[Rfam]
This 111-nucleotide RNA from Marinobacterium sp. LSUCC0821 belongs to the Rfam family "Ribosomal S15 leader". A reference for the family is Benard et al. (1996), "Pseudoknot and translational control in the expression of the S15 ribosomal protein", Biochimie. By type it is a cis-regulatory leader. Gene Ontology term of the family: regulation of translation, ncRNA-mediated. Lineage of the source: Bacteria > Pseudomonadati > Pseudomonadota > Gammaproteobacteria > Marinobacterium. About the family: The E. coli Ribosomal S15 gene 5' UTR can form two alternative structures. Clan: Ribosomal Protein S15 Leader clan.
RNA sequence: AUUGCUAUUCAAAUUGAAAGUGGCUGUGUGCAUAUCGUAACUAGGAGAAAUUCAAUGGCUCUAACCGUUGAGAAAAAAGCUGAAAUCGUUGCUGAGUUUGGGCGUGGUCAG
Numbered sequence: 001a002u003u004g005c006u007a008u009u010c011a012a013a014u015u016g017a018a019a020g021u022g023g024c025u026g027u028g029u030g031c032a033u034a035u036c037g038u039a040a041c042u043a044g045g046a047g048a049a050a051u052u053c054a055a056u057g058g059c060u061c062u063a064a065c066c067g068u069u070g071a072g073a074a075a076a077a078a079g080c081u082g083a084a085a086u087c088g089u090u091g092c093u094g095a096g097u098u099u100g101g102g103c104g105u106g107g108u109c110a111g
Base pairs, nucleotide, nucleotide: 004024005023006022007021008020042064044062045061046060047059